[Rfam]
RNA: MIR391 microRNA precursor family
RNA sequence: GCAAAUUAAGAUUUGCUUCGCAGGAGAGAUAGCGCCAUCACCUAUCUUCUGAUAGUCUAGCUGAUGGUGAUGACGGUAUCUCCCCUACGUAGCAAUCCUUAUAUGUGC
Dot-bracket structure: (((.((.(((..(((((.((.(((.((((((.((.((((((.........................)))))).)).)))))).))).)).)))))..)))..)).)))